[Rfam]
The family of this 82-nucleotide RNA sequence from Urocynchramus pylzowi is "Small nucleolar RNA SNORD111". The match comes from Rfam's covariance-model search (51 bits).
RNA sequence: CGGCCUGAAAUGAUGUUCUGAGUUCAUGUCUCUUCCCUGAGAUGUCCUGUGGAGACAGCCAGAUGCAUUUCUGAUCAGGCCU
Numbered sequence: 001c002g003g004c005c006u007g008a009a010a011u012g013a014u015g016u017u018c019u020g021a022g023u024u025c026a027u028g029u030c031u032c033u034u035c036c037c038u039g040a041g042a043u044g045u046c047c048u049g050u051g052g053a054g055a056c057a058g059c060c061a062g063a064u065g066c067a068u069u070u071c072u073g074a075u076c077a078g079g080c081c082u
Stems, first nucleotide, its partner, number of pairs: 002081004
Lineage of the source: Eukaryota > Theropoda > Coelurosauria > Passeroidea > Urocynchramus. Gene Ontology terms of the family: nucleolus and RNA processing.